[Rfam]
Small nucleolar RNA R21: a 79-nucleotide sequence from Papaver nudicaule. The source organism's lineage runs through Eukaryota, Streptophyta, Tracheophyta, Mesangiospermae and Papaver. Its family is annotated with nucleolus and RNA processing in the Gene Ontology. Pairs were carried over by alignment from the consensus structure, which was predicted with PFOLD. A search with the family's covariance model found it, with a score of 70 bits. It is annotated as a C/D-box small nucleolar RNA. For this family Rfam cites "Identification of 66 box C/D snoRNAs in Arabidopsis thaliana: extensive gene duplications generated multiple isoforms predicting new ribosomal RNA 2'-O-methylation sites" (Barneche et al., J Mol Biol, 2001).

RNA sequence: UAUCCCAAUGAAGGAUCAUGUUCAAAAAAUUAAAGUAGUGGACUGAUAUCUAUUGAUGAUUUGUUUAUUCUGAGGGAUG
Numbered sequence: 001u002a003u004c005c006c007a008a009u010g011a012a013g014g015a016u017c018a019u020g021u022u023c024a025a026a027a028a029a030u031u032a033a034a035g036u037a038g039u040g041g042a043c044u045g046a047u048a049u050c051u052a053u054u055g056a057u058g059a060u061u062u063g064u065u066u067a068u069u070c071u072g073a074g075g076g077a078u079g
Stems, first nucleotide, its partner, number of pairs: 001079006